Shown here is a 97-nucleotide sequence from Plasticicumulans lactativorans, a member of the family "Bacterial small signal recognition particle RNA". It scores 71 bits against the family's covariance model. Gene Ontology terms of the family: SRP-dependent cotranslational protein targeting to membrane, signal sequence recognition and signal recognition particle, plasma membrane targeting. Rfam's curators write: The signal recognition particle (SRP) is a universally conserved ribonucleoprotein involved in the co-translational targeting of proteins to membranes.
RNA sequence: UGCCGGUCCCCUCGCGACGAGAAGCUGUGAACCCCGUCAGGCCCGGAAGGGAGCAGCGGCAGCAGCUGUAUCGGGCGCCGGGGUGUGGCUGGCACGG
Numbered sequence: 001u002g003c004c005g006g007u008c009c010c011c012u013c014g015c016g017a018c019g020a021g022a023a024g025c026u027g028u029g030a031a032c033c034c035c036g037u038c039a040g041g042c043c044c045g046g047a048a049g050g051g052a053g054c055a056g057c058g059g060c061a062g063c064a065g066c067u068g069u070a071u072c073g074g075g076c077g078c079c080g081g082g083g084u085g086u087g088g089c090u091g092g093c094a095c096g097g
Stems, first nucleotide, its partner, number of pairs: 004091005010083005015075001018073003022069001023067006034059004042051003